[Rfam]
RNA sequence: AAAGUCUGACAGACAAUCGCUGGCGGCUAGUGCCGCGAGAGGAAAGUCCGGGCUCCGCAGGGCAGGAUGCUGGAUAACGUCCAGUCGGCGCGAGCCGAAGGAUAGUGCCACAGAAAUGGACCGCCGAUGGCCCGCCGCUUGCGGCGCGGAUCAGGCAAGGGUGGAACCGUGGUGUAAGAGACCACGAGCGGCGUUGGCGACAACGCGGCUGGUAAACCCCAUCCGGAGCAAGACCUAAGAGAACGCGGCAGCUUCGCGCUGCAACCCUUGCCCGGGGAGCGUUCGGGUUGGUCGCUUGAGCCUGCCAGCAAUGGCAGGCCUAGAUAGAUGAUUGUCGCUUGCAGUGGGAGGGUCGUUCCCGUCUGGACCACGAAGAGCACAGAACCCGGCUUACGGCAGGCUUUCCGC
Numbered sequence: 001a002a003a004g005u006c007u008g009a010c011a012g013a014c015a016a017u018c019g020c021u022g023g024c025g026g027c028u029a030g031u032g033c034c035g036c037g038a039g040a041g042g043a044a045a046g047u048c049c050g051g052g053c054u055c056c057g058c059a060g061g062g063c064a065g066g067a068u069g070c071u072g073g074a075u076a077a078c079g080u081c082c083a084g085u086c087g088g089c090g091c092g093a094g095c096c097g098a099a100g101g102a103u104a105g106u107g108c109c110a111c112a113g114a115a116a117u118g119g120a121c122c123g124c125c126g127a128u129g130g131c132c133c134g135c136c137g138c139u140u141g142c143g144g145c146g147c148g149g150a151u152c153a154g155g156c157a158a159g160g161g162u163g164g165a166a167c168c169g170u171g172g173u174g175u176a177a178g179a180g181a182c183c184a185c186g187a188g189c190g191g192c193g194u195u196g197g198c199g200a201c202a203a204c205g206c207g208g209c210u211g212g213u214a215a216a217c218c219c220c221a222u223c224c225g226g227a228g229c230a231a232g233a234c235c236u237a238a239g240a241g242a243a244c245g246c247g248g249c250a251g252c253u254u255c256g257c258g259c260u261g262c263a264a265c266c267c268u269u270g271c272c273c274g275g276g277g278a279g280c281g282u283u284c285g286g287g288u289u290g291g292u293c294g295c296u297u298g299a300g301c302c303u304g305c306c307a308g309c310a311a312u313g314g315c316a317g318g319c320c321u322a323g324a325u326a327g328a329u330g331a332u333u334g335u336c337g338c339u340u341g342c343a344g345u346g347g348g349a350g351g352g353u354c355g356u357u358c359c360c361g362u363c364u365g366g367a368c369c370a371c372g373a374a375g376a377g378c379a380c381a382g383a384a385c386c387c388g389g390c391u392u393a394c395g396g397c398a399g400g401c402u403u404u405c406c407g408c
Stems, first nucleotide, its partner, number of pairs: 001404008010395001012336007020039002023036005044392003048389005053228004060273004065224005070084005085099001086097004100219002105217002107213003121160002123156003128153003132149004168186006188209002191206006232293004241284006265277004300319008